[Rfam]
RNA: Archaeal large subunit ribosomal RNA, nucleotides 1363 to 1718
Organism: Candidatus Halobonum tyrrellensis
RNA sequence: CACAGUAGCAGCGAUAUUCGGGUGUGAACCCCGAAGGCCUGAAGAGUAAGGGUUCCUCGGCACUGCUAAUCAGCCGAGGGUUAGCCGAUCCUAAGUCCCGCCGUAAUUCGAACGGGACAAAAGGGUAACUGGUUAAUAUUCCAGUGCUACCACGCACUGAAAGUCGACGCUUUGGAGUCGGCUGAGCCGGACUUUCGUCCGGUCGAAUCGUCGAAGCCCGUGGAAGCCGUAAUGGCACGAAGCGGGCGAAUGUCGAGACAGCGUAAGUCAGCUCAAUCCGGAGCCCGUGAAAAGACGAGCGUGGUAUUCGUACCGAGAUCCGACACAGGUACUCUGGCAGAGUAAGCCAAGGCCAA
Numbered sequence: 001c002a003c004a005g006u007a008g009c010a011g012c013g014a015u016a017u018u019c020g021g022g023u024g025u026g027a028a029c030c031c032c033g034a035a036g037g038c039c040u041g042a043a044g045a046g047u048a049a050g051g052g053u054u055c056c057u058c059g060g061c062a063c064u065g066c067u068a069a070u071c072a073g074c075c076g077a078g079g080g081u082u083a084g085c086c087g088a089u090c091c092u093a094a095g096u097c098c099c100g101c102c103g104u105a106a107u108u109c110g111a112a113c114g115g116g117a118c119a120a121a122a123g124g125g126u127a128a129c130u131g132g133u134u135a136a137u138a139u140u141c142c143a144g145u146g147c148u149a150c151c152a153c154g155c156a157c158u159g160a161a162a163g164u165c166g167a168c169g170c171u172u173u174g175g176a177g178u179c180g181g182c183u184g185a186g187c188c189g190g191a192c193u194u195u196c197g198u199c200c201g202g203u204c205g206a207a208u209c210g211u212c213g214a215a216g217c218c219c220g221u222g223g224a225a226g227c228c229g230u231a232a233u234g235g236c237a238c239g240a241a242g243c244g245g246g247c248g249a250a251u252g253u254c255g256a257g258a259c260a261g262c263g264u265a266a267g268u269c270a271g272c273u274c275a276a277u278c279c280g281g282a283g284c285c286c287g288u289g290a291a292a293a294g295a296c297g298a299g300c301g302u303g304g305u306a307u308u309c310g311u312a313c314c315g316a317g318a319u320c321c322g323a324c325a326c327a328g329g330u331a332c333u334c335u336g337g338c339a340g341a342g343u344a345a346g347c348c349a350a351g352g353c354c355a356a
Stems, first nucleotide, its partner, number of pairs: 017035006036354004044334004050314002055079006064072002086310003090124002095118006102110002128145005148306008163296003169284008180273005186203005208256003217246005226236003262267001320329002335349004